[Rfam]
RNA: Ribosomal protein L10 leader
Organism: Caldicoprobacter faecalis
RNA sequence: AAUUUAUUUGAAGGCUUACCGCAGACAGUAGGUGCCUUUGCGCUUAAAUGUGUUUGCACAGCCUACCGAGGUAAGGUAAAGGGAUGGGUAUAUACUGCCCUCUUACUGUCUUGCGGUAAGGGGGCUUUUUAGUUUUUGCU
Numbered sequence: 001a002a003u004u005u006a007u008u009u010g011a012a013g014g015c016u017u018a019c020c021g022c023a024g025a026c027a028g029u030a031g032g033u034g035c036c037u038u039u040g041c042g043c044u045u046a047a048a049u050g051u052g053u054u055u056g057c058a059c060a061g062c063c064u065a066c067c068g069a070g071g072u073a074a075g076g077u078a079a080a081g082g083g084a085u086g087g088g089u090a091u092a093u094a095c096u097g098c099c100c101u102c103u104u105a106c107u108g109u110c111u112u113g114c115g116g117u118a119a120g121g122g123g124g125c126u127u128u129u130u131a132g133u134u135u136u137u138g139c140u
Stems, first nucleotide, its partner, number of pairs: 028066006034043002097125013